The record is an 87-nucleotide RNA sequence from Solanum lycopersicum, which matches "MIR8024 microRNA precursor family" in Rfam. The family has 2 seed sequences and 661 matches in Rfam 15.1. The family's consensus secondary structure was predicted with RNAalifold.
RNA sequence: UAGGUGGAUUUGAGGACUUCAACGUGCAUAUUUGGAGGAUUUUGAAGAAUUUCACAUGCAUAUUUGGAUGAUUUGAAGACUUUGACU
Number, nucleotide and partner (000 for none) at each position: 001u085002a000003g083004g082005u000006g080007g000008a000009u077010u076011u075012g074013a073014g072015g000016a000017c000018u068019u067020c066021a065022a000023c000024g000025u060026g059027c058028a057029u000030a000031u000032u054033u000034g052035g051036a050037g000038g000039a000040u000041u000042u000043u000044g000045a000046a000047g000048a000049a000050u036051u035052u034053c000054a032055c000056a000057u028058g027059c026060a025061u000062a000063u000064u000065u021066g020067g019068a018069u000070g000071a000072u014073u013074u012075g011076a010077a009078g000079a000080c006081u000082u004083u003084g000085a001086c000087u000